[Rfam]
RNA sequence: GGACAUAAACGCGCACGUAAUAAGCGGAUCGGACCCGGGGGCGGUACCCGGCGGCUCCACCAAACGCCCAUCGUUGGGGGCACAUGGGGCCGAAACAGGAUCGACGGACGUCUAAAGGUGUUUGCUUUGUCCCGGUGAGGUACCACCGAUAUCGGUCCGUUAAGCAUAAUUGCCAACGACAAUCGUGCUCCGGUUGCGGUUGCUGCGUAA
Numbered sequence: 001g002g003a004c005a006u007a008a009a010c011g012c013g014c015a016c017g018u019a020a021u022a023a024g025c026g027g028a029u030c031g032g033a034c035c036c037g038g039g040g041g042c043g044g045u046a047c048c049c050g051g052c053g054g055c056u057c058c059a060c061c062a063a064a065c066g067c068c069c070a071u072c073g074u075u076g077g078g079g080g081c082a083c084a085u086g087g088g089g090c091c092g093a094a095a096c097a098g099g100a101u102c103g104a105c106g107g108a109c110g111u112c113u114a115a116a117g118g119u120g121u122u123u124g125c126u127u128u129g130u131c132c133c134g135g136u137g138a139g140g141u142a143c144c145a146c147c148g149a150u151a152u153c154g155g156u157c158c159g160u161u162a163a164g165c166a167u168a169a170u171u172g173c174c175a176a177c178g179a180c181a182a183u184c185g186u187g188c189u190c191c192g193g194u195u196g197c198g199g200u201u202g203c204u205g206c207g208u209a210a
Base pairs, nucleotide, nucleotide: 001132002131003130004129005128013121014120015119016118025110026109029107030106031105035051036050037049038048039047052092053091054090055089056088057087058086133148134147135146136145
This 210-nucleotide RNA from Palleronia caenipelagi belongs to the Rfam family "permuted transfer-messenger RNA".
The base pairs follow the family's consensus structure, which is taken from published work.
Rfam classes the family as a non-coding RNA gene.
The literature on the family includes a 2003 paper in Nucleic Acids Res by Zwieb et al., "tmRDB (tmRNA database)".
The source organism's lineage runs through Bacteria, Pseudomonadati, Rhodobacterales, Roseobacteraceae and Palleronia.